[Rfam]
RNA sequence: CCAGGAAAAUGACCUAUGAAUUGACAGACUGCUUUUUACAUUUGCCUGUCAUUUCUAUAGGCCAAUGUCCUGU
Numbered sequence: 001c002c003a004g005g006a007a008a009a010u011g012a013c014c015u016a017u018g019a020a021u022u023g024a025c026a027g028a029c030u031g032c033u034u035u036u037u038a039c040a041u042u043u044g045c046c047u048g049u050c051a052u053u054u055c056u057a058u059a060g061g062c063c064a065a066u067g068u069c070c071u072g073u
Base pairs, nucleotide, nucleotide: 002072003071004070005069006068008066010064011063013061014060015059016058018055019054020053022051023050024049025048026047027046029044031042